[Rfam]
RNA sequence: AAGGCAGUGAUGAUUGGCGCAGGGGUACAGACCUCAGCUGGAUUAUGGGAGCUGACUGCAAGUGUUUCUCUGUAUCCUACAUGUGGUGGGAGACUUGAGAACAUCUGUAGGAAAAAACUGCCUGAAUCUGAGCCUA
Numbered sequence: 001a002a003g004g005c006a007g008u009g010a011u012g013a014u015u016g017g018c019g020c021a022g023g024g025g026u027a028c029a030g031a032c033c034u035c036a037g038c039u040g041g042a043u044u045a046u047g048g049g050a051g052c053u054g055a056c057u058g059c060a061a062g063u064g065u066u067u068c069u070c071u072g073u074a075u076c077c078u079a080c081a082u083g084u085g086g087u088g089g090g091a092g093a094c095u096u097g098a099g100a101a102c103a104u105c106u107g108u109a110g111g112a113a114a115a116a117a118c119u120g121c122c123u124g125a126a127u128c129u130g131a132g133c134c135u136a
Stems, first nucleotide, its partner, number of pairs: 002135004

Small nucleolar RNA SNORD94: a 136-nucleotide RNA from Geotrypetes seraphini. A search with the family's covariance model found it, with a score of 125 bits. The family's RNA type in Rfam is C/D-box small nucleolar RNA. Gene Ontology terms of the family: nucleolus and RNA processing.